[Rfam]
RNA sequence: AACUAAUGAUGCUUAAUUUAAGAGUAGUGGACAGAAGUGAUUUCUGAAACCGCUUAACUGAAGUU
Numbered sequence: 001a002a003c004u005a006a007u008g009a010u011g012c013u014u015a016a017u018u019u020a021a022g023a024g025u026a027g028u029g030g031a032c033a034g035a036a037g038u039g040a041u042u043u044c045u046g047a048a049a050c051c052g053c054u055u056a057a058c059u060g061a062a063g064u065u
Base pairs, nucleotide, nucleotide: 001065002064003063004062
RNA: Small nucleolar RNA SNORD75
Organism: Mola mola